The family of this 81-nucleotide sequence from Saguinus labiatus is "mir-95 microRNA precursor family". Taxonomically the source falls in Saguinus (Eukaryota, Theria, Boreoeutheria, Simiiformes). Its family is annotated with miRNA-mediated post-transcriptional gene silencing, response to bacterium and RISC complex in the Gene Ontology.

[Rfam]
Nucleotides: 081
Base pairs, nucleotide, nucleotide: 002080003079004078007075008074009073010072011071014068015067016066017065018064019063021061022060023059024058025057026056027055028054029053030052031051032050035048036047
Number, partner (000 for none) and nucleotide at each position: 001000a002080a003079c004078a005000c006000a007075g008074u009073g010072g011071g012000c013000a014068c015067u016066c017065a018064a019063u020000a021061a022060a023059u024058g025057u026056c027055u028054g029053u030052u031051g032050a033000a034000u035048u036047g037000a038000a039000a040000u041000g042000c043000g044000u045000u046000a047036c048035a049000u050032u051031c052030a053029a054028c055027g056026g057025g058024u059023a060022u061021u062000u063019a064018u065017u066016g067015a068014g069000c070000a071011c072010c073009c074008a075007c076000u077000c078004u079003g080002u081000g